[Rfam]
RNA sequence: AUUUGUUGAAAAUCACCCCUGGCCUUGAUCAUGGCAUGUGUUGAGAUUUGGUACCCAGAGCCACCAGGGGCCUCAGCUUACCUCCAGCUGCCACAGUGUGGGAGGGUGAAAUCCAGGCCCUGACAAGG
Numbered sequence: 001a002u003u004u005g006u007u008g009a010a011a012a013u014c015a016c017c018c019c020u021g022g023c024c025u026u027g028a029u030c031a032u033g034g035c036a037u038g039u040g041u042u043g044a045g046a047u048u049u050g051g052u053a054c055c056c057a058g059a060g061c062c063a064c065c066a067g068g069g070g071c072c073u074c075a076g077c078u079u080a081c082c083u084c085c086a087g088c089u090g091c092c093a094c095a096g097u098g099u100g101g102g103a104g105g106g107u108g109a110a111a112u113c114c115a116g117g118c119c120c121u122g123a124c125a126a127g128g
Stems, first nucleotide, its partner, number of pairs: 005052006013044003022035003067121001069119005078109005087099002

Background:
Shown here is a 128-nucleotide sequence from Nannospalax galili, a member of the family "Small nucleolar RNA ACA64". Taxonomically the source falls in Nannospalax (Eukaryota, Euteleostomi, Dipnotetrapodomorpha, Spalacinae). The family's consensus secondary structure was predicted with WAR. On this family, see Schattner et al., RNA 2006: "A computational screen for mammalian pseudouridylation guide H/ACA RNAs".